[Rfam]
RNA: Pseudomonas sRNA P18
Organism: Pseudomonas mangiferae
RNA sequence: GGAGGCGUGUUCGUCAGCCCGCUGCUGGUGUACGCGCUGCUGGCGCUGCUGGUGACGGGGCUGCUGCGCCUGCUCCUGCAGCGGGUCGGCCUGACGCGCUGGAUCUGGCACGAGGCGCUGUUCGAUUCGGCCCUG
Numbered sequence: 001g002g003a004g005g006c007g008u009g010u011u012c013g014u015c016a017g018c019c020c021g022c023u024g025c026u027g028g029u030g031u032a033c034g035c036g037c038u039g040c041u042g043g044c045g046c047u048g049c050u051g052g053u054g055a056c057g058g059g060g061c062u063g064c065u066g067c068g069c070c071u072g073c074u075c076c077u078g079c080a081g082c083g084g085g086u087c088g089g090c091c092u093g094a095c096g097c098g099c100u101g102g103a104u105c106u107g108g109c110a111c112g113a114g115g116c117g118c119u120g121u122u123c124g125a126u127u128c129g130g131c132c133c134u135g
Stems, first nucleotide, its partner, number of pairs: 002067001004065004010059002012052001015048004019043003023039001068133001076096001079093003098131008108121003